[Rfam]
RNA sequence: UGGCCUGAAGUGAUGUUAUGACUUCAUGUCUCUUCUCUGACAUGUGUCAUGGAGAUAGCAAGGUCUUUCUGAUCAGGCUU
Number, nucleotide and partner (000 for none) at each position: 001u000002g079003g078004c077005c076006u000007g000008a000009a000010g000011u000012g000013a000014u000015g000016u000017u000018a000019u000020g000021a000022c000023u000024u000025c000026a000027u000028g000029u000030c000031u000032c000033u000034u000035c000036u000037c000038u000039g000040a000041c000042a000043u000044g000045u000046g000047u000048c000049a000050u000051g000052g000053a000054g000055a000056u000057a000058g000059c000060a000061a000062g000063g000064u000065c000066u000067u000068u000069c000070u000071g000072a000073u000074c000075a000076g005077g004078c003079u002080u000

This 80-nucleotide RNA from Psilopogon haemacephalus belongs to the Rfam family "Small nucleolar RNA SNORD111". A search with the family's covariance model found it, with a score of 51 bits. The base pairs follow the family's consensus structure, which was predicted with RNAalifold.